The record is a 139-nucleotide RNA sequence from Artemisia annua, which matches "Small nucleolar RNA snoR136" in Rfam. Taxonomically the source falls in Artemisia (Eukaryota, Tracheophyta, Gunneridae, Asterales). Gene Ontology terms of the family: nucleolus and RNA processing. The family has 8 seed sequences and 452 matches in Rfam 15.1. The family's consensus secondary structure was predicted with mfold. Rfam classes the family as an H/ACA-box small nucleolar RNA.
RNA sequence: GUGGCUUUAUAAAAUUUGAAUGAGGAUUUGCUAAAAUUAAAAUUGGCAAAUUUGAAUGGAAUGGAGCCUAAAACAAAUGUUCCCCUCGCUAUCCGGUGUUACUUUCAAUGUUGCAUUUGGACGUUGGGAAACUAUAUUU
Numbered sequence: 001g002u003g004g005c006u007u008u009a010u011a012a013a014a015u016u017u018g019a020a021u022g023a024g025g026a027u028u029u030g031c032u033a034a035a036a037u038u039a040a041a042a043u044u045g046g047c048a049a050a051u052u053u054g055a056a057u058g059g060a061a062u063g064g065a066g067c068c069u070a071a072a073a074c075a076a077a078u079g080u081u082c083c084c085c086u087c088g089c090u091a092u093c094c095g096g097u098g099u100u101a102c103u104u105u106c107a108a109u110g111u112u113g114c115a116u117u118u119g120g121a122c123g124u125u126g127g128g129a130a131a132c133u134a135u136a137u138u139u
Stems, first nucleotide, its partner, number of pairs: 002070001003068003008063003016056002019053002026051008079132003083128003087123002092121005100110002